The record is a 73-nucleotide RNA from Lepisosteus oculatus, which matches "mir-122 microRNA precursor family" in Rfam. Gene Ontology terms of the family: miRNA-mediated post-transcriptional gene silencing and RISC complex. NCBI's taxonomy places the organism under Eukaryota, Opisthokonta, Metazoa, Neopterygii, Lepisosteus.
[Rfam]
RNA sequence: CAAAGCUGUGGAGUGUGACAAUGGUGUUUGUGUGACUGAUAUCAAACGCCAUUAUCACACUAAAUAGCUAUGG
Dot-bracket structure: ...........(((((((.(((((((((((............))))))))))).)))))))............

Record summary
On this family, see Lagos-Quintana et al., Curr Biol 2002: "Identification of tissue-specific microRNAs from mouse".